[Rfam]
Nucleotides: 114
Base pairs, nucleotide, nucleotide: 001110002109003108004107005106006105007104008103010102011101014098015097016093017092019090020089045075048072
Number, partner (000 for none) and nucleotide at each position: 001110g002109g003108c004107u005106g006105g007104u008103c009000u010102g011101a012000a013000g014098g015097u016093a017092g018000a019090g020089a021000a022000u023000u024000a025000u026000c027000u028000c029000a030000c031000u032000u033000u034000a035000c036000u037000g038000u039000u040000c041000a042000c043000a044000a045075g046000u047000c048072a049000g050000u051000u052000a053000c054000a055000g056000a057000c058000u059000a060000a061000a062000c063000u064000c065000c066000c067000u068000g069000u070000u071000a072048u073000g074000c075045u076000c077000u078000u079000u080000c081000c082000u083000u084000u085000c086000u087000u088000c089020u090019c091000a092017u093016u094000a095000u096000a097015g098014c099000a100000c101011u102010u103008g104007a105006c106005u107004a108003g109002u110001c111000u112000u113000u114000a
Record summary
Shown here is a 114-nucleotide RNA sequence from Otolemur garnettii, a member of the family "Y RNA". The family's RNA type in Rfam is non-coding RNA gene. The match comes from Rfam's covariance-model search (45 bits). The source organism's lineage runs through Eukaryota, Eumetazoa, Boreoeutheria, Galagidae and Otolemur.